[Rfam]
RNA: ZMP/ZTP riboswitch aptamer (pfl RNA motif)
Organism: Oscillibacter sp. CAG:155
RNA sequence: AACAGAUCAUAUGACUGACGGAAGUGGGAGAACCACGUGGAGUAUGAUUUUGUAAUUGCCGACCGUCUGGGCACAUUCA
Numbered sequence: 001a002a003c004a005g006a007u008c009a010u011a012u013g014a015c016u017g018a019c020g021g022a023a024g025u026g027g028g029a030g031a032a033c034c035a036c037g038u039g040g041a042g043u044a045u046g047a048u049u050u051u052g053u054a055a056u057u058g059c060c061g062a063c064c065g066u067c068u069g070g071g072c073a074c075a076u077u078c079a
Stems, first nucleotide, its partner, number of pairs: 004050009015039001017067005024036004057073004